[Rfam]
This 134-nucleotide sequence from Hibiscus syriacus belongs to the Rfam family "Small nucleolar RNA snoR111". The match comes from Rfam's covariance-model search (58 bits). The family has 6 seed sequences and 533 matches in Rfam 15.1. A reference for the family is Marker et al. (2002), "Experimental RNomics: identification of 140 candidates for small non-messenger RNAs in the plant Arabidopsis thaliana", Curr Biol. NCBI's taxonomy places the organism under Eukaryota, Embryophyta, Mesangiospermae, Gunneridae, Hibiscus.

RNA sequence: GGAACAAUGAGGAGGCAUGUAUAAAAUUAGUCUCUUCAUGACUCAACAUUGCGGUAUAUUAAAAUCGAAGGCCGAGAUAUCGUUUCAGUCGUCGUCUUUUCUUCAUUAACUGUGUGAUUGUUGCUCGUCCACAC
Dot-bracket structure: ......((((((((((.............))))))))))..............................((.((((..((((.....((.((.(............).)).)).)))).....)))).))....